[Rfam]
Record summary:
mir-181 microRNA precursor family: an 82-nucleotide RNA from Kryptolebias marmoratus. Rfam 15.1 lists 3,490 matches to the family in 650 species. The literature on the family includes a 2001 paper in Cell by Ambros, "microRNAs: tiny regulators with great potential". The base pairs follow the family's consensus structure, which was predicted with PFOLD. The match comes from Rfam's covariance-model search (70 bits).

RNA sequence: UGCCCACAGGAAACAUUCAACGCUGUCGGUGAGUUUGUGCUCUGAUGCAAACCAUCGACCGUUGACUGUAUCCUGAGAGACA
Number, nucleotide and partner (000 for none) at each position: 001u082002g081003c000004c000005c077006a000007c075008a074009g000010g000011a000012a000013a000014c068015a067016u000017u065018c064019a063020a062021c061022g060023c000024u000025g059026u058027c057028g056029g055030u054031g053032a000033g052034u051035u050036u049037g000038u000039g000040c000041u000042c000043u000044g000045a000046u000047g000048c000049a036050a035051a034052c033053c031054a030055u029056c028057g027058a026059c025060c022061g021062u020063u019064g018065a017066c000067u015068g014069u000070a000071u000072c000073c000074u008075g007076a000077g005078a000079g000080a000081c002082a001